[Rfam]
RNA sequence: GAGUAACGGGUUCUAGUGGUGCCCGACUAGAACCCCAACAGCCAGGCGUUACACCUGAUGCUGUUAAACGGGCAUUUC
Numbered sequence: 001g002a003g004u005a006a007c008g009g010g011u012u013c014u015a016g017u018g019g020u021g022c023c024c025g026a027c028u029a030g031a032a033c034c035c036c037a038a039c040a041g042c043c044a045g046g047c048g049u050u051a052c053a054c055c056u057g058a059u060g061c062u063g064u065u066a067a068a069c070g071g072g073c074a075u076u077u078c
Stems, first nucleotide, its partner, number of pairs: 008035009020074005037064001043057002046055001
A member of the RNA family "Coronavirus frameshifting stimulation element" from Deltacoronavirus pycnonoti, 78 nucleotides long. Lineage of the source: Viruses > Riboviria > Pisuviricota > Deltacoronavirus > Bulbul coronavirus HKU11. On this family, see Baranov et al., Virology 2005: "Programmed ribosomal frameshifting in decoding the SARS-CoV genome". This family represents a conserved stem-loop found in Coronaviruses which can promote ribosomal frameshifting. This family interacts with a downstream region to form a pseudoknot structure, the region varies according to the virus but pseudoknot formation is known to stimulate frameshifting. It is one of the family's seed sequences.